About this RNA:
Rfam assigns this 84-nucleotide RNA from Siminovitchia fortis to the family "c-di-GMP-I riboswitch aptamer". The organism belongs to Siminovitchia, within Bacteria. Rfam describes the family as follows. GEMM was predicted in a large-scale screen for bacterial structured RNA regulatory elements.
RNA sequence: UCCAGAUAAAGGCAAACUUAUUGAAAAAUAAGGACGCAAAGCUACGGGCCUAAGGCUAUUUGCUAUGGUGGCCGAGUUACCAAA
Number, nucleotide and partner (000 for none) at each position: 001u000002c000003c000004a000005g000006a000007u000008a000009a000010a000011g000012g037013c036014a000015a000016a000017c032018u031019u030020a029021u028022u027023g000024a000025a000026a000027a022028a021029u020030a019031a018032g017033g000034a000035c000036g013037c012038a000039a000040a078041g077042c076043u075044a000045c074046g073047g072048g069049c068050c067051u000052a000053a000054g000055g063056c062057u000058a000059u000060u000061u000062g056063c055064u000065a000066u000067g050068g049069u048070g000071g000072c047073c046074g045075a043076g042077u041078u040079a000080c000081c000082a000083a000084a000